Description
The record is a 273-nucleotide RNA from Acanthochromis polyacanthus, which matches "Small Cajal body specific RNA 6" in Rfam. The source organism's lineage runs through Eukaryota, Neoteleostei, Percomorphaceae, Ovalentaria and Acanthochromis. On this family, see Darzacq et al., EMBO J 2002: "Cajal body-specific small nuclear RNAs: a novel class of 2'-O-methylation and pseudouridylation guide RNAs".
[Rfam]
RNA sequence: GGUCGGUGAUGAACAGUAAAAGGUCUGAUUACCCACAAUCCUCUCCUGCUGCCCUCUGGCUCCCAGCAGCCCCUGCUCUCUGCUCCCAUCAUGCUCUAGUGCUGCAGCGGUGGUCCAGCAGCUGCUGACAGACAGGAUGUGACAUCACACUGGGAGUCUGUGCCGAGAUCCAACAGGCUCCCUGUGAUGACGGACAUCCAACAGAACCAAUCAGAACGGAGCGCCAGGCUGAGGGGGAGGAGGGAGCUGAUCUAAAGUUUUCAACCUGAGACC
Numbered sequence: 001g002g003u004c005g006g007u008g009a010u011g012a013a014c015a016g017u018a019a020a021a022g023g024u025c026u027g028a029u030u031a032c033c034c035a036c037a038a039u040c041c042u043c044u045c046c047u048g049c050u051g052c053c054c055u056c057u058g059g060c061u062c063c064c065a066g067c068a069g070c071c072c073c074u075g076c077u078c079u080c081u082g083c084u085c086c087c088a089u090c091a092u093g094c095u096c097u098a099g100u101g102c103u104g105c106a107g108c109g110g111u112g113g114u115c116c117a118g119c120a121g122c123u124g125c126u127g128a129c130a131g132a133c134a135g136g137a138u139g140u141g142a143c144a145u146c147a148c149a150c151u152g153g154g155a156g157u158c159u160g161u162g163c164c165g166a167g168a169u170c171c172a173a174c175a176g177g178c179u180c181c182c183u184g185u186g187a188u189g190a191c192g193g194a195c196a197u198c199c200a201a202c203a204g205a206a207c208c209a210a211u212c213a214g215a216a217c218g219g220a221g222c223g224c225c226a227g228g229c230u231g232a233g234g235g236g237g238a239g240g241a242g243g244g245a246g247c248u249g250a251u252c253u254a255a256a257g258u259u260u261u262c263a264a265c266c267u268g269a270g271a272c273c
Stems, first nucleotide, its partner, number of pairs: 001273004035253001037251001039249001042235003046231001048229002060221004064127007086113005092107001094104001135199006149185002152182010
Rfam links the family to the GO terms RNA processing and nucleolus. Rfam classes the family as a small Cajal body RNA.